[Rfam]
RNA sequence: AAGCCAGCUAGUGGCUCUGCUUACCUGGAUGUGUUUCUGCAGAAGUUUAGAAAAAGCUGCCAGUAGUAAUGCCGUGUUAUGAACCUUAAUGACACUGAAGUCAUUAAGGUUCCCGGAAAUGGCUGCAACA
Numbered sequence: 001a002a003g004c005c006a007g008c009u010a011g012u013g014g015c016u017c018u019g020c021u022u023a024c025c026u027g028g029a030u031g032u033g034u035u036u037c038u039g040c041a042g043a044a045g046u047u048u049a050g051a052a053a054a055a056g057c058u059g060c061c062a063g064u065a066g067u068a069a070u071g072c073c074g075u076g077u078u079a080u081g082a083a084c085c086u087u088a089a090u091g092a093c094a095c096u097g098a099a100g101u102c103a104u105u106a107a108g109g110u111u112c113c114c115g116g117a118a119a120u121g122g123c124u125g126c127a128a129c130a
Stems, first nucleotide, its partner, number of pairs: 003061001005059003016043005071123004083110007091102003
Description: A member of the RNA family "Small nucleolar RNA SNORA33" from Sciurus vulgaris, 130 nucleotides long. Gene Ontology terms of the family: nucleolus and RNA processing. By type it is an H/ACA-box small nucleolar RNA. Rfam's curators write: ACA33 is a member of the H/ACA class of snoRNA that guide the sites of modification of uridines to pseudouridines. The organism belongs to Sciurus, within Eukaryota.